[Rfam]
RNA sequence: AAUAAAAUUGUUGUACUCACUCAUAUAAUUGCAAGGAUAUGGCUUGCAAGUCUCUACCAGGUUACCGUAAAUAACCUGACUAUGGGUGAGCGAUGACUCCUA
Numbered sequence: 001a002a003u004a005a006a007a008u009u010g011u012u013g014u015a016c017u018c019a020c021u022c023a024u025a026u027a028a029u030u031g032c033a034a035g036g037a038u039a040u041g042g043c044u045u046g047c048a049a050g051u052c053u054c055u056a057c058c059a060g061g062u063u064a065c066c067g068u069a070a071a072u073a074a075c076c077u078g079a080c081u082a083u084g085g086g087u088g089a090g091c092g093a094u095g096a097c098u099c100c101u102a
Stems, first nucleotide, its partner, number of pairs: 018088008029049007058078007
Notes
Purine riboswitch aptamer: a 102-nucleotide sequence from Caldibacillus debilis. It scores 92 bits against the family's covariance model. The family's consensus secondary structure is taken from published work.